[Rfam]
RNA sequence: UCAGUAAAAGGGUAAACCUGUCUGAAAAGCAGGGACACAAAGUCACAGGUCUAAGGUCAAUGACUAUGACAGCUGGACUGCCUGA
Numbered sequence: 001u002c003a004g005u006a007a008a009a010g011g012g013u014a015a016a017c018c019u020g021u022c023u024g025a026a027a028a029g030c031a032g033g034g035a036c037a038c039a040a041a042g043u044c045a046c047a048g049g050u051c052u053a054a055g056g057u058c059a060a061u062g063a064c065u066a067u068g069a070c071a072g073c074u075g076g077a078c079u080g081c082c083u084g085a
Base pairs, nucleotide, nucleotide: 012038013037017033018032019031020030022029023028041079042078043077044076046075047074048073049070050069051068056064057063058062